[Rfam]
RNA sequence: GCGUGACCGCCGCCGAAUCACUUUCGGGUGAGCCGGGGACCCAGGUAGGUGGGGUGAGUCCGCAACCGCGGUAGGGACUUGUUCCGUCCCGAACCCGUCAGCUAACUCGGUAGGCGGGCGACGGAGGGACA
Numbered sequence: 001g002c003g004u005g006a007c008c009g010c011c012g013c014c015g016a017a018u019c020a021c022u023u024u025c026g027g028g029u030g031a032g033c034c035g036g037g038g039a040c041c042c043a044g045g046u047a048g049g050u051g052g053g054g055u056g057a058g059u060c061c062g063c064a065a066c067c068g069c070g071g072u073a074g075g076g077a078c079u080u081g082u083u084c085c086g087u088c089c090c091g092a093a094c095c096c097g098u099c100a101g102c103u104a105a106c107u108c109g110g111u112a113g114g115c116g117g118g119c120g121a122c123g124g125a126g127g128g129a130c131a
Stems, first nucleotide, its partner, number of pairs: 011116004018031003032111006042051002052096003060071004074090004
RNA: c-di-AMP riboswitch aptamer (ydaO/yuaA leader)